[Rfam]
Shown here is a 67-nucleotide RNA sequence from Kibdelosporangium aridum, a member of the family "Actino-pnp RNA". Rfam classes the family as a cis-regulatory element. The family's consensus secondary structure is taken from published work.
RNA sequence: GCCGGUCCUCGGUAGUGGCUUCCGGGUGAGCAAAGAGGAAACCCGGGGGCUUCGAUCGAAGACCGGC
Numbered sequence: 001g002c003c004g005g006u007c008c009u010c011g012g013u014a015g016u017g018g019c020u021u022c023c024g025g026g027u028g029a030g031c032a033a034a035g036a037g038g039a040a041a042c043c044c045g046g047g048g049g050c051u052u053c054g055a056u057c058g059a060a061g062a063c064c065g066g067c
Stems, first nucleotide, its partner, number of pairs: 001067007009059005017051011